[Rfam]
RNA sequence: GAACAUUUUCUCUUUUAGUAUUUCUCCAGUAGGUUUUCUCAAGGAGAAAGCCUUC
Numbered sequence: 001g002a003a004c005a006u007u008u009u010c011u012c013u014u015u016u017a018g019u020a021u022u023u024c025u026c027c028a029g030u031a032g033g034u035u036u037u038c039u040c041a042a043g044g045a046g047a048a049a050g051c052c053u054u055c
Stems, first nucleotide, its partner, number of pairs: 032052008
The record is a 55-nucleotide sequence from Oncorhynchus mykiss, which matches "U7 small nuclear RNA" in Rfam. The literature on the family includes a 2007 paper in Genomics Proteomics Bioinformatics by Marz et al., "U7 snRNAs: a computational survey". The source organism's lineage runs through Eukaryota, Osteoglossocephalai, Protacanthopterygii, Salmoniformes and Oncorhynchus. Pairs were carried over by alignment from the consensus structure, which was predicted with PFOLD.